Description: Shown here is a 162-nucleotide sequence from Thermoflavimicrobium dichotomicum, a member of the family "SAM riboswitch aptamer (S box leader)". It scores 77 bits against the family's covariance model. Its Rfam clan is "SAM clan". The source organism's lineage runs through Bacteria, Bacillati, Bacillota, Bacilli and Thermoflavimicrobium. Pairs were carried over by alignment from the consensus structure, which is taken from published work.
[Rfam]
RNA sequence: CUCUUAUCCAGAGCAGGUGGAGGGAACUGGCCCAAUGAAGCCCAGCAACCGGCCGUAAUACCAUCGUGAGAUGGGGCACCUGAGACAAUCAGGGGCCGUGGCAUCAAGCCACAUAAGGCACGGUGCUAAUUCCAGCAGAACUCAGGUUCUGCAAGAUAAGAG
Numbered sequence: 001c002u003c004u005u006a007u008c009c010a011g012a013g014c015a016g017g018u019g020g021a022g023g024g025a026a027c028u029g030g031c032c033c034a035a036u037g038a039a040g041c042c043c044a045g046c047a048a049c050c051g052g053c054c055g056u057a058a059u060a061c062c063a064u065c066g067u068g069a070g071a072u073g074g075g076g077c078a079c080c081u082g083a084g085a086c087a088a089u090c091a092g093g094g095g096c097c098g099u100g101g102c103a104u105c106a107a108g109c110c111a112c113a114u115a116a117g118g119c120a121c122g123g124u125g126c127u128a129a130u131u132c133c134a135g136c137a138g139a140a141c142u143c144a145g146g147u148u149c150u151g152c153a154a155g156a157u158a159a160g161a162g
Stems, first nucleotide, its partner, number of pairs: 001162008013043001016042003022033003027135004044127004049123002051119001053117001131154001136151006